Source information: Histidine operon leader: a 138-nucleotide sequence from Vibrio paucivorans. A search with the family's covariance model found it, with a score of 84 bits. Rfam links the family to the GO term histidine biosynthetic process. From the family's description: At least 6 amino acid operons are known to be regulated by attenuation. In each a leader sequence of 150-200 bp is found upstream of the first gene in the operon. This leader sequence can assume two different secondary structures known as the terminator and the anti-terminator structure. In each case the leader also codes for very short peptide sequence that is rich in the end product amino acid of the operon. The literature on the family includes a 1982 paper in Annu Rev Genet by Kolter and Yanofsky, "Attenuation in amino acid biosynthetic operons".

RNA sequence: UCAUCACCAUCAUCACCCUAUCUAGUCUUUCGGGGAGAUACGCGCAUACCCGGGAGGCAGAAAACUCCCGGAGAUAAAAUCAUAGAAAACAAGAUUUUAAACCCUCGGGAGACCAAAAGCUCCCGAGGGUUUUUUAGU
Numbered sequence: 001u002c003a004u005c006a007c008c009a010u011c012a013u014c015a016c017c018c019u020a021u022c023u024a025g026u027c028u029u030u031c032g033g034g035g036a037g038a039u040a041c042g043c044g045c046a047u048a049c050c051c052g053g054g055a056g057g058c059a060g061a062a063a064a065c066u067c068c069c070g071g072a073g074a075u076a077a078a079a080u081c082a083u084a085g086a087a088a089a090c091a092a093g094a095u096u097u098u099a100a101a102c103c104c105u106c107g108g109g110a111g112a113c114c115a116a117a118a119g120c121u122c123c124c125g126a127g128g129g130u131u132u133u134u135u136a137g138u
Stems, first nucleotide, its partner, number of pairs: 009047002012039003017034003049071002052069005099132013